[Rfam]
RNA sequence: CUGCACACCAGUAGACCUUAUCUGGUUCUUCUGAUAGCCAGACGAGGGGGAUGGUGCAUGCUACAAAAACCUGGGGUUGCUCUAGGCUGUGAUCAGCAGUGAUGUGGCUGAUUGAACUGCAAUACUCCAACAUAU
Number, nucleotide and partner (000 for none) at each position: 001c000002u000003g061004c060005a059006c000007a000008c056009c000010a000011g000012u000013a000014g000015a000016c047017c046018u045019u044020a000021u042022c041023u040024g039025g000026u000027u000028c000029u000030u000031c000032u000033g000034a000035u000036a000037g000038c000039c024040a023041g022042a021043c000044g019045a018046g017047g016048g000049g000050g000051a000052u000053g000054g000055u000056g008057c000058a000059u005060g004061c003062u000063a000064c000065a000066a000067a000068a000069a000070c000071c000072u000073g128074g127075g126076g125077u000078u124079g000080c000081u121082c000083u119084a000085g000086g000087c000088u000089g000090u000091g000092a000093u111094c110095a109096g108097c107098a000099g000100u000101g000102a000103u000104g000105u000106g000107g097108c096109u095110g094111a093112u000113u000114g000115a000116a000117c000118u000119g083120c000121a081122a000123u000124a078125c076126u075127c074128c073129a000130a000131c000132a000133u000134a000135u000

The family of this 135-nucleotide RNA sequence from Oceanites oceanicus is "Small nucleolar RNA SNORA58". The family has 20 seed sequences and 471 matches in Rfam 15.1. Rfam classes the family as an H/ACA-box small nucleolar RNA. Pairs were carried over by alignment from the consensus structure, which was predicted with PFOLD. About the family: ACA52 is a member of the H/ACA class of snoRNA that guide the sites of modification of uridines to pseudouridines. Lineage of the source: Eukaryota > Gnathostomata > Euteleostomi > Saurischia > Oceanites.